[Rfam]
RNA sequence: GAGGUUGCCUGCUUAAGCCUCUCCCCCUAUAUCGUUCCUGCCGUCCUUUCGGGGCCGGCUAUGGUGAUAAAUGAUAUCGAGUGAGGCGCAGCGGACCCGGGGGCGGUACCCGGCGGCUCCACCACAACCCGGCCUUCCAACAGCCGGGCUUCUGAUGGGGCCGAACUAGGAUCGACGUGUGUACGAGCUUGCUAUUUUUGCCCGGCCUGAUUGAGCCGUAAAACCGAUCAAAACCACAAGUGCCAACGACAACGAGGCGCUCGCCCUGGCCGCGUAACGAGUCCUAACGGAUAAGUUACUUCAACCAGAGCGCGGUUCGGGCCGAACCGGGCAACAGAAUCGGAUACC
Number, nucleotide and partner (000 for none) at each position: 001g000002a000003g000004g000005u000006u000007g000008c000009c000010u000011g000012c000013u000014u000015a000016a000017g000018c000019c000020u000021c000022u000023c000024c000025c000026c000027c000028u000029a000030u000031a000032u000033c000034g000035u000036u000037c000038c000039u000040g059041c058042c057043g056044u000045c000046c000047u000048u000049u000050c000051g000052g000053g000054g000055c000056c043057g042058g041059c040060u000061a000062u000063g202064g201065u200066g199067a198068u000069a000070a000071a000072u000073g000074a195075u194076a193077u000078c191079g190080a189081g000082u000083g000084a000085g000086g000087c181088g180089c179090a000091g178092c177093g176094g000095a000096c000097c113098c112099g111100g110101g109102g000103g000104c000105g000106g000107u000108a000109c101110c100111c099112g098113g097114c163115g162116g161117c160118u159119c158120c157121a000122c000123c000124a000125c000126a000127a000128c000129c000130c000131g000132g000133c000134c000135u000136u000137c000138c000139a000140a000141c000142a000143g000144c000145c000146g000147g000148g000149c000150u000151u000152c000153u000154g000155a000156u000157g120158g119159g118160g117161c116162c115163g114164a000165a000166c000167u000168a000169g000170g000171a000172u000173c000174g000175a000176c093177g092178u091179g089180u088181g087182u000183a000184c000185g000186a000187g000188c000189u080190u079191g078192c000193u076194a075195u074196u000197u000198u067199u066200g065201c064202c063203c218204g217205g216206c215207c000208u230209g229210a228211u000212u227213g000214a000215g206216c205217c204218g203219u000220a000221a000222a000223a000224c000225c000226g000227a212228u210229c209230a208231a000232a000233a000234c000235c000236a000237c000238a000239a000240g000241u000242g000243c000244c000245a000246a000247c000248g000249a000250c000251a000252a000253c000254g000255a000256g000257g000258c000259g000260c000261u000262c000263g000264c000265c000266c000267u000268g000269g000270c000271c000272g000273c000274g000275u000276a000277a000278c000279g000280a000281g000282u000283c000284c000285u000286a000287a000288c000289g000290g000291a000292u000293a000294a000295g000296u000297u000298a000299c000300u000301u000302c000303a000304a000305c000306c000307a000308g000309a000310g000311c000312g000313c329314g328315g327316u326317u000318c000319g345320g000321g000322c342323c000324g340325a000326a316327c315328c314329g313330g000331g000332c000333a000334a000335c000336a000337g000338a000339a000340u324341c000342g322343g000344a000345u319346a000347c000348c000

Alphaproteobacteria transfer-messenger RNA: a 348-nucleotide sequence from Sphingomonas chungangi. The base pairs follow the family's consensus structure, which is taken from published work. Clan: tRNA clan. A search with the family's covariance model found it, with a score of 188 bits. From the family's description: Bacterial tmRNA, also known as 10Sa RNA or SsrA, is named for its dual tRNA and mRNA-like properties. It is annotated as a non-coding RNA gene. The organism belongs to Sphingomonas, within Bacteria.